[Rfam]
RNA sequence: UCGACUGUACUUGCACAGGAUCACUGCUACAGUGAUUCCUUUUGCAUAUUUGUCAUAGAAAAGAGCUUCACAUCAUCUCUGAUCAUGUCGAUCUCUGCACUGCUAAGGAAUUUGCUGGGGCUUGCUCCCAGCUUGAUGAAAUAAAUGGGAGCGUCCAAAUAUACCGUAUAUAGGAGAAACAAGAGAUCGUUACAUUGUUGUUGUUGUUGUUUUUGCCAUUGUUUUUGGGGUCGCUCUGGGAACAAGCAUUUUUGGACACACCCAAAUCAGUGCAGACUUCUGAAGAGAU
Number, nucleotide and partner (000 for none) at each position: 001u000002c000003g039004a000005c000006u035007g000008u034009a033010c032011u031012u000013g000014c000015a000016c000017a028018g027019g000020a025021u000022c000023a000024c000025u020026g000027c018028u017029a000030c000031a011032g010033u009034g008035a006036u000037u000038c000039c003040u000041u000042u000043u000044g000045c000046a068047u000048a000049u065050u064051u063052g000053u000054c000055a000056u000057a000058g000059a000060a000061a000062a000063g051064a050065g049066c000067u000068u046069c000070a000071c000072a000073u000074c000075a000076u288077c287078u286079c285080u284081g000082a000083u000084c000085a000086u000087g000088u000089c000090g000091a000092u000093c000094u276095c275096u274097g273098c272099a000100c270101u269102g268103c000104u143105a142106a000107g000108g000109a000110a000111u000112u000113u000114g132115c131116u130117g129118g128119g127120g126121c000122u000123u000124g000125c000126u120127c119128c118129c117130a116131g115132c114133u000134u000135g000136a000137u000138g000139a000140a000141a000142u105143a104144a000145a000146u264147g263148g262149g261150a000151g259152c000153g000154u000155c000156c000157a000158a000159a000160u000161a000162u000163a000164c000165c000166g000167u000168a000169u000170a000171u000172a000173g000174g000175a000176g000177a000178a000179a000180c000181a000182a000183g000184a000185g000186a000187u000188c000189g000190u000191u000192a000193c000194a000195u000196u000197g000198u000199u000200g000201u000202u000203g000204u000205u000206g000207u000208u000209g000210u000211u000212u000213u000214u000215g000216c000217c000218a000219u000220u000221g000222u000223u000224u000225u000226u000227g000228g000229g000230g000231u000232c000233g000234c000235u000236c000237u000238g000239g000240g000241a000242a000243c000244a000245a000246g000247c000248a000249u000250u000251u000252u000253u000254g000255g000256a000257c000258a000259c151260a000261c149262c148263c147264a146265a000266a000267u000268c102269a101270g100271u000272g098273c097274a096275g095276a094277c000278u000279u000280c000281u000282g000283a000284a080285g079286a078287g077288a076289u000
The family of this 289-nucleotide sequence from Polarella glacialis is "ACEA small nucleolar RNA U3".
Its Rfam clan is "U3 clan".
Rfam's curators write: Small nucleolar RNAs (snoRNAs) are involved in the processing and modification of rRNA in the nucleolus. There are two main classes of snoRNAs: the box C/D class, and the box H/ACA class. U3 snoRNA is a member of the box C/D class. Indeed, the box C/D element is a subset of the six short sequence elements found in all U3 snoRNAs, namely boxes A, A', B, C, C', and D. The U3 snoRNA secondary structure is characterised by a small 5' domain (with boxes A and A'), and a larger 3' domain (with boxes B, C, C', and D), the two domains being linked by a single-stranded hinge.
Rfam links the family to the GO terms RNA processing and nucleolus.
For this family Rfam cites "The uRNA database" (Zwieb, Nucleic Acids Res, 1997).